[Rfam]
RNA sequence: AAUAGCAUAGGCGAUGGAGUUCGCCAUAACCCCGGGCCAACCGGUAAUGACUCCUACUGGUAA
Numbered sequence: 001a002a003u004a005g006c007a008u009a010g011g012c013g014a015u016g017g018a019g020u021u022c023g024c025c026a027u028a029a030c031c032c033c034g035g036g037c038c039a040a041c042c043g044g045u046a047a048u049g050a051c052u053c054c055u056a057c058u059g060g061u062a063a
Stems, first nucleotide, its partner, number of pairs: 010025004016054006032044004
RNA: Fluoride riboswitch aptamer (crcB RNA motif)